[Rfam]
RNA sequence: UUGUUGUGUAGACAUUCAGCCUCAGGCUGGAGCCCAGGCCCUGGGACCCUUCCCCCUCCCAGAACUUGGGCUCCAGCCUGAGUCUGAACAUCUACACAGCAGUUUA
Numbered sequence: 001u002u003g004u005u006g007u008g009u010a011g012a013c014a015u016u017c018a019g020c021c022u023c024a025g026g027c028u029g030g031a032g033c034c035c036a037g038g039c040c041c042u043g044g045g046a047c048c049c050u051u052c053c054c055c056c057u058c059c060c061a062g063a064a065c066u067u068g069g070g071c072u073c074c075a076g077c078c079u080g081a082g083u084c085u086g087a088a089c090a091u092c093u094a095c096a097c098a099g100c101a102g103u104u105u106a
Base pairs, nucleotide, nucleotide: 010093011092012091015088016087018085019084021082022081023080024079025078026077027076028075029074030073031072032071033070034069035068036067037066038065041062042061043060044059045058046057
Record summary:
A member of the RNA family "mraW RNA" from Gopherus agassizii, 106 nucleotides long. By type it is a cis-regulatory element. The family has 45 seed sequences and 851 matches in Rfam 15.1. It scores 53 bits against the family's covariance model.